[Rfam]
RNA sequence: CAGUUUAAUAAAGCGCCAGAACUAGUAAAGGUCCCAUUUCACUCAAGGACUGGAGAGUUUAUCAGUCAGAAUGUUUCUGUGCUUGUAUAUUCCUUUGUCAAACAGGGUAUGCACGUAUCUUGAUGAAGAAAGAUUCAUGAAUGAUAAACUAAUGGGAACCGUAAUACUAGUUGACGAGGAGAAGGUUUAUCGAGUUUUUCGGCGGAUACCUUCCGACUUUGCGCAUAGUCGAGAUUUCUCUCUAAAACAAAGAGGUGACUUUUUGGACAAAGGAGAGAAAAAUGCGCCAU
Numbered sequence: 001c002a003g004u005u006u007a008a009u010a011a012a013g014c015g016c017c018a019g020a021a022c023u024a025g026u027a028a029a030g031g032u033c034c035c036a037u038u039u040c041a042c043u044c045a046a047g048g049a050c051u052g053g054a055g056a057g058u059u060u061a062u063c064a065g066u067c068a069g070a071a072u073g074u075u076u077c078u079g080u081g082c083u084u085g086u087a088u089a090u091u092c093c094u095u096u097g098u099c100a101a102a103c104a105g106g107g108u109a110u111g112c113a114c115g116u117a118u119c120u121u122g123a124u125g126a127a128g129a130a131a132g133a134u135u136c137a138u139g140a141a142u143g144a145u146a147a148a149c150u151a152a153u154g155g156g157a158a159c160c161g162u163a164a165u166a167c168u169a170g171u172u173g174a175c176g177a178g179g180a181g182a183a184g185g186u187u188u189a190u191c192g193a194g195u196u197u198u199u200c201g202g203c204g205g206a207u208a209c210c211u212u213c214c215g216a217c218u219u220u221g222c223g224c225a226u227a228g229u230c231g232a233g234a235u236u237u238c239u240c241u242c243u244a245a246a247a248c249a250a251a252g253a254g255g256u257g258a259c260u261u262u263u264u265g266g267a268c269a270a271a272g273g274a275g276a277g278a279a280a281a282a283u284g285c286g287c288c289a290u
Stems, first nucleotide, its partner, number of pairs: 020172008181213005190202004214231005235280007248265007
Record summary
The family of this 290-nucleotide sequence from Caldibacillus thermoamylovorans is "glmS glucosamine-6-phosphate activated ribozyme aptamer". The family's RNA type in Rfam is riboswitch. Its family is annotated with regulation of gene expression and catalytic activity in the Gene Ontology. It scores 106 bits against the family's covariance model. This entry contains a glucosamine-6-phosphate activated ribozyme that is found in the mRNA for GlmS. GlmS is an enzyme that uses fructose-6-phosphate and glutamine to generate glucosamine-6-phosphate.